[Rfam]
Description
A member of the RNA family "mir-194 microRNA precursor family" from Erpetoichthys calabaricus, 81 nucleotides long. The source organism's lineage runs through Eukaryota, Bilateria, Deuterostomia, Polypteridae and Erpetoichthys. For this family Rfam cites "New microRNAs from mouse and human" (Lagos-Quintana et al., RNA, 2003).
RNA sequence: UGGUGUACUCUGGCUGUAACAGCAACUCCAUGUGGAAGAUCCCUCAGUUCCAGUGGAGCUGCUGUUAUCUGCAGCGUAUGA
Number, nucleotide and partner (000 for none) at each position: 001u000002g000003g000004u000005g000006u000007a000008c000009u000010c074011u073012g072013g000014c000015u000016g068017u067018a066019a065020c064021a063022g062023c061024a000025a000026c058027u057028c056029c055030a054031u053032g000033u052034g051035g050036a000037a000038g000039a000040u000041c000042c000043c000044u000045c000046a000047g000048u000049u000050c035051c034052a033053g031054u030055g029056g028057a027058g026059c000060u000061g023062c022063u021064g020065u019066u018067a017068u016069c000070u000071g000072c012073a011074g010075c000076g000077u000078a000079u000080g000081a000